[Rfam]
Notes:
A member of the RNA family "mir-1684 microRNA precursor family" from Oryza meyeriana, 85 nucleotides long.
RNA sequence: UGGAUUAUUCCGAGAUUCUACUUUCCCUAUAUACAUACAUAUAAUAUGUAUGUAUAUAGGGAAAGUAGAAUCUCGGAAUAAUCCA
Numbered sequence: 001u002g003g004a005u006u007a008u009u010c011c012g013a014g015a016u017u018c019u020a021c022u023u024u025c026c027c028u029a030u031a032u033a034c035a036u037a038c039a040u041a042u043a044a045u046a047u048g049u050a051u052g053u054a055u056a057u058a059g060g061g062a063a064a065g066u067a068g069a070a071u072c073u074c075g076g077a078a079u080a081a082u083c084c085a
Base pairs, nucleotide, nucleotide: 002084003083006080007079009077010076011075012074013073014072015071016070017069018068019067020066021065023063024062025061026060027059028058029057030056031055032054034052035051037049038048039047040046